[Rfam]
Shown here is a 115-nucleotide RNA from Succinivibrio dextrinosolvens, a member of the family "Alpha operon ribosome binding site". Rfam links the family to the GO term ribosome binding.
RNA sequence: GCACUAUAGCGGUUGUCGCGUAUCCUAACGGGCUUUGCGACAGCCUUUGUUUUAAACCGACCUAUGUUAUAGGAGAUCAAUAGUGGCCCGUAUAGCUGGCAUUAAUGUGCCUGAU
Dot-bracket structure: ....((.(((((...........[[...[[[[.....{{.......))))).))................................]]]].......]]............}}..
Numbered sequence: 001g002c003a004c005u006a007u008a009g010c011g012g013u014u015g016u017c018g019c020g021u022a023u024c025c026u027a028a029c030g031g032g033c034u035u036u037g038c039g040a041c042a043g044c045c046u047u048u049g050u051u052u053u054a055a056a057c058c059g060a061c062c063u064a065u066g067u068u069a070u071a072g073g074a075g076a077u078c079a080a081u082a083g084u085g086g087c088c089c090g091u092a093u094a095g096c097u098g099g100c101a102u103u104a105a106u107g108u109g110c111c112u113g114a115u
Stems, first nucleotide, its partner, number of pairs: 005054002008051005024099002029090004038113002
For this family Rfam cites "Translational repression of the Escherichia coli alpha operon mRNA: importance of an mRNA conformational switch and a ternary entrapment complex" (Schlax et al., J Biol Chem, 2001). Rfam describes the family as follows. The bacterial alpha operon ribosome binding site is surrounded by this complex pseudoknotted structure. Translation of the mRNA produces 4 ribosomal protein products, one of which (S4) acts as a translational repressor by binding to the nested pseudoknot region.